[Rfam]
RNA sequence: GCUGGAGGACUAAUCAGUCUGAGUCUGAAGUGAGACUCAGAUGACAGUAGCCUCCUAAAAGAAAAGGGAUGGAGAGAGUGGUCCUACUUACAGAAAAGCAAAGGGCUGACUGUGCCAUCUGACACUU
Dot-bracket structure: ..((((((........(((.((((((......)))))).)))........))))).)........(((........(((((((((...(.(......).).))))))).))......))).......
Shown here is a 127-nucleotide RNA from Lophotis ruficrista, a member of the family "Small Cajal body specific RNA 4". Lineage of the source: Eukaryota > Chordata > Teleostomi > Archosauria > Lophotis. Rfam 15.1 lists 634 matches to the family in 510 species. Rfam's curators write: scaRNAs are a specific class of small nuclear RNAs which localise to the Cajal bodies and guide the modification of RNA polymerase II transcribed spliceosomal RNAs U1, U2, U4, U5 and U12. ACA26 belongs to the H/ACA box class of guide RNAs as it has the predicted hairpin-hinge-hairpin-tail structure, conserved H/ACA-box motifs and is found associated with GAR1. The match comes from Rfam's covariance-model search (93 bits).